[Rfam]
RNA: Y RNA-like
RNA sequence: CCGGCGAAUGCCUGUGUGACUACACCACUUUUAAUGGCCAGGUCGCGGGUUCGAGUCCCGCCCACGCUUAAAAUGGCGUGGUAGCUCAGUUGGGAGAGCAGGACUGUCACACAUACUCUUGUCGCCGAAGG
Number, nucleotide and partner (000 for none) at each position: 001c000002c127003g126004g125005c124006g123007a122008a000009u000010g000011c000012c000013u113014g112015u111016g110017u109018g108019a107020c000021u000022a000023c102024a000025c000026c000027a000028c000029u000030u000031u000032u000033a000034a000035u000036g000037g000038c000039c101040a000041g000042g000043u000044c000045g061046c060047g059048g058049g057050u000051u000052c093053g000054a000055g000056u000057c049058c048059c047060g046061c045062c081063c080064a079065c078066g077067c076068u000069u000070a000071a000072a000073a000074u000075g000076g067077c066078g065079u064080g063081g062082u000083a000084g099085c098086u097087c096088a000089g000090u000091u000092g000093g052094g000095a000096g087097a086098g085099c084100a000101g039102g023103a000104c000105u000106g000107u019108c018109a017110c016111a015112c014113a013114u000115a000116c000117u000118c000119u000120u000121g000122u007123c006124g005125c004126c003127g002128a000129a000130g000131g000